Annotation: Rfam assigns this 83-nucleotide RNA sequence from Euroglyphus maynei to the family "mir-71 microRNA precursor family". The literature on the family includes a 2009 paper in BMC Genomics by Li et al., "Direct sequencing and expression analysis of a large number of miRNAs in Aedes aegypti and a multi-species survey of novel mosquito miRNAs". The family's consensus secondary structure was predicted with RNAalifold. The source organism's lineage runs through Eukaryota, Eumetazoa, Acari, Sarcoptiformes and Euroglyphus. Rfam links the family to the GO terms RISC complex and miRNA-mediated post-transcriptional gene silencing.
RNA sequence: UCUUUGUGAAAGACAUGGGUAGUGAGAUGUUAUUAAUUAAAAUUUCAUGAAAUUCAUCUCACUACCUUGUCUUUGACGUAGGG
Numbered sequence: 001u002c003u004u005u006g007u008g009a010a011a012g013a014c015a016u017g018g019g020u021a022g023u024g025a026g027a028u029g030u031u032a033u034u035a036a037u038u039a040a041a042a043u044u045u046c047a048u049g050a051a052a053u054u055c056a057u058c059u060c061a062c063u064a065c066c067u068u069g070u071c072u073u074u075g076a077c078g079u080a081g082g083g
Base pairs, nucleotide, nucleotide: 009074010073011072012071013070014069015068017067018066019065021063022062023061024060025059026058027057028056029055